[Rfam]
RNA sequence: GGGGAUAAACUUAGAACCCCAGUGCAGGGGUGUUAAUAGUGUAGCUUUUGGCCGAGCUCCAUGGUUAGUGAAUC
Numbered sequence: 001g002g003g004g005a006u007a008a009a010c011u012u013a014g015a016a017c018c019c020c021a022g023u024g025c026a027g028g029g030g031u032g033u034u035a036a037u038a039g040u041g042u043a044g045c046u047u048u049u050g051g052c053c054g055a056g057c058u059c060c061a062u063g064g065u066u067a068g069u070g071a072a073u074c
Stems, first nucleotide, its partner, number of pairs: 001020004033068005039062003043058005
RNA: L13-Bacteroidia ribosomal protein leader
Organism: Prevotella sp. S7 MS 2